The record is a 54-nucleotide sequence from Megalops atlanticus, which matches "UnaL2 LINE 3' element" in Rfam. The source organism's lineage runs through Eukaryota, Opisthokonta, Elopomorpha, Megalopidae and Megalops. From the family's description: The eel long interspersed element (LINE) UnaL2 and its partner short interspersed element (SINE) share a conserved 3' tail containing a stem-loop that is critical for their retrotransposition. Presumably, the first step of retrotransposition is the recognition of their 3' tails by UnaL2-encoded reverse transcriptase. The solution structure of a 17-nucleotide RNA derived from the 3' tail of UnaL2 was determined by NMR.
RNA sequence: AACUAUAUCCUCUGUAAGUCACUCUGGAUAAGAGUGUCUGCUAAAUGAAAAUAA
Numbered sequence: 001a002a003c004u005a006u007a008u009c010c011u012c013u014g015u016a017a018g019u020c021a022c023u024c025u026g027g028a029u030a031a032g033a034g035u036g037u038c039u040g041c042u043a044a045a046u047g048a049a050a051a052u053a054a
Base pairs, nucleotide, nucleotide: 013043014041015040016039020036021035022034023033024032025031